The record is a 114-nucleotide sequence from Shewanella frigidimarina, which matches "Ribosomal S15 leader" in Rfam. Rfam's curators put it in the seed alignment. The organism belongs to Shewanella frigidimarina, within Bacteria. Rfam describes the family as follows. The E. coli Ribosomal S15 gene 5' UTR can form two alternative structures. One that is a series of three hairpins, The other includes a pseudoknot. This structure causes translational regulation of the S15 protein. For this family Rfam cites "Pseudoknot and translational control in the expression of the S15 ribosomal protein" (Benard et al., Biochimie, 1996).
RNA sequence: CACUCUGGCUGAGUUAGUGAUCGGCUUGAGAUACAUUUACUUUUUUUGGAGAUACACAUGUCACUAAGUGCUGAAACAAAAGCAAAAAUUUUGGCUGAUUUUGGUCGCUGCGAA
Numbered sequence: 001c002a003c004u005c006u007g008g009c010u011g012a013g014u015u016a017g018u019g020a021u022c023g024g025c026u027u028g029a030g031a032u033a034c035a036u037u038u039a040c041u042u043u044u045u046u047u048g049g050a051g052a053u054a055c056a057c058a059u060g061u062c063a064c065u066a067a068g069u070g071c072u073g074a075a076a077c078a079a080a081a082g083c084a085a086a087a088a089u090u091u092u093g094g095c096u097g098a099u100u101u102u103g104g105u106c107g108c109u110g111c112g113a114a
Stems, first nucleotide, its partner, number of pairs: 007026006045068005051062001